RNA sequence: UAAUCAUUAUUGCCGAAUUUCUUGAUACUGAAAACGGGGGAACCAUUUUUGGGUGAAAUAUUCUCAUUGAAGAAUAGAGGGAACCUUCUACCGAACCCUUAGCUAACUCCGUAGGCAUCGGAAGGAGAACUA
Numbered sequence: 001u002a003a004u005c006a007u008u009a010u011u012g013c014c015g016a017a018u019u020u021c022u023u024g025a026u027a028c029u030g031a032a033a034a035c036g037g038g039g040g041a042a043c044c045a046u047u048u049u050u051g052g053g054u055g056a057a058a059u060a061u062u063c064u065c066a067u068u069g070a071a072g073a074a075u076a077g078a079g080g081g082a083a084c085c086u087u088c089u090a091c092c093g094a095a096c097c098c099u100u101a102g103c104u105a106a107c108u109c110c111g112u113a114g115g116c117a118u119c120g121g122a123a124g125g126a127g128a129a130c131u132a
Base pairs, nucleotide, nucleotide: 011117012116013115014114018033019032020031034112035111036110037109038108039107045049051098052097053096059076060075061074062073079092080091082089
RNA: c-di-AMP riboswitch aptamer (ydaO/yuaA leader)
Organism: Paenibacillus rhizosphaerae